[Rfam]
Nucleotides: 175
Base pairs, nucleotide, nucleotide: 006170007169008168009167010166011165017083018082019081020080021079023077024076025075033068034067035066036065037064039062087115088114089113090112091111092110093109094108095107096106097105116142117141119139120138121137122136123135125133126132144160145159146158147157148156149155150154
Number, partner (000 for none) and nucleotide at each position: 001000u002000a003000u004000a005000u006170g007169g008168a009167u010166a011165g012000a013000g014000g015000u016000u017083g018082c019081g020080c021079u022000u023077u024076u025075c026000a027000u028000c029000a030000g031000u032000a033068c034067u035066u036065u037064u038000g039062c040000g041000g042000a043000u044000g045000u046000c047000g048000c049000a050000g051000g052000g053000g054000c055000a056000g057000a058000g059000g060000a061000a062039g063000g064037a065036a066035a067034a068033g069000g070000a071000a072000a073000g074000g075025g076024g077023a078000c079021g080020g081019c082018g083017c084000c085000g086000a087115a088114a089113g090112a091111a092110a093109a094108u095107g096106g097105a098000g099000u100000c101000u102000g103000c104000a105097u106096c107095u108094g109093u110092u111091u112090u113089u114088u115087u116142g117141g118000g119139c120138a121137u122136g123135c124000u125133g126132c127000g128000a129000a130000g131000a132126g133125c134000u135123g136122c137121a138120u139119g140000a141117c142116u143000g144160u145159c146158a147157u148156c149155c150154g151000a152000u153000a154150u155149g156148g157147g158146u159145g160144g161000g162000g163000c164000g165011c166010u167009a168008u169007c170006u171000g172000a173000c174000u175000g
Rfam assigns this 175-nucleotide sequence from bacterium C-53 to the family "Lysine riboswitch aptamer". Its family is annotated with lysine biosynthetic process in the Gene Ontology. The base pairs follow the family's consensus structure, which is taken from published work.